[Rfam]
RNA sequence: UCUACGAAUUAACGUAGACUCAAACAAGUGUAAGGCAGUAGUAAUACUGACCGAUGCCGGAGAGAGGACAUUUGACAACGUGCCACUGAUCAUGUGCCUAAGAUC
Number, nucleotide and partner (000 for none) at each position: 001u018002c017003u016004a015005c014006g013007a000008a000009u000010u000011a000012a000013c006014g005015u004016a003017g002018a001019c064020u063021c062022a000023a000024a000025c000026a000027a000028g000029u000030g000031u000032a000033a000034g052035g051036c049037a000038g047039u046040a045041g000042u000043a000044a000045u040046a039047c038048u000049g036050a000051c035052c034053g000054a000055u000056g000057c000058c000059g000060g000061a000062g021063a020064g019065a000066g000067g000068a000069c000070a000071u000072u000073u000074g000075a000076c000077a000078a000079c000080g000081u000082g000083c000084c000085a000086c000087u000088g000089a000090u000091c000092a000093u000094g000095u000096g000097c000098c000099u000100a000101a000102g000103a000104u000105c000

The family of this 105-nucleotide sequence is "RAGATH-20 RNA". It is annotated as a small RNA. Rfam's curators put it in the seed alignment.